[Rfam]
RNA sequence: CAACGGACUUAAGCGACCUUUGAGUGCCCCGCCGGAAACGGCGGGAGUAGAACUGCUCAAAUUCGGGGAAAGCUACGGCGGAUGACGUAUCCGACCUUGCCGAUCCCGAGCCAAGCCCUGUUGAAUGAACAUUCAAUGGGGAAGGUGUAGAGACUAGACGGGCAGCGCCUAAGGCCAGGAACCUGGCUACGGUGAAGGUAUAGUCCAGACCACGAACUUGCUCUUAU
Numbered sequence: 001c002a003a004c005g006g007a008c009u010u011a012a013g014c015g016a017c018c019u020u021u022g023a024g025u026g027c028c029c030c031g032c033c034g035g036a037a038a039c040g041g042c043g044g045g046a047g048u049a050g051a052a053c054u055g056c057u058c059a060a061a062u063u064c065g066g067g068g069a070a071a072g073c074u075a076c077g078g079c080g081g082a083u084g085a086c087g088u089a090u091c092c093g094a095c096c097u098u099g100c101c102g103a104u105c106c107c108g109a110g111c112c113a114a115g116c117c118c119u120g121u122u123g124a125a126u127g128a129a130c131a132u133u134c135a136a137u138g139g140g141g142a143a144g145g146u147g148u149a150g151a152g153a154c155u156a157g158a159c160g161g162g163c164a165g166c167g168c169c170u171a172a173g174g175c176c177a178g179g180a181a182c183c184u185g186g187c188u189a190c191g192g193u194g195a196a197g198g199u200a201u202a203g204u205c206c207a208g209a210c211c212a213c214g215a216a217c218u219u220g221c222u223c224u225u226a227u
Stems, first nucleotide, its partner, number of pairs: 005027001007025007031042003053165004058160001063109006072100002075097001110146002116140003123134004150206001152205005168192002172188002212225001214223002

The record is a 227-nucleotide RNA sequence from Hyphococcus luteus, which matches "Group I catalytic intron" in Rfam. A reference for the family is Cech (1990), "Self-splicing of group I introns", Annu Rev Biochem. Group I catalytic introns are large self-splicing ribozymes. They catalyse their own excision from mRNA, tRNA and rRNA precursors in a wide range of organisms. The core secondary structure consists of 9 paired regions (P1-P9). These fold to essentially two domains - the P4-P6 domain (formed from the stacking of P5, P4, P6 and P6a helices) and the P3-P9 domain (formed from the P8, P3, P7 and P9 helices). The secondary structure mark-up for this family represents only this conserved core. Group I catalytic introns often have long ORFs inserted in loop regions. The window size for this search is chosen to minimise search time and catch the small examples. A larger window size will find more matches. It scores 62 bits against the family's covariance model. The organism belongs to Hyphococcus, within Bacteria.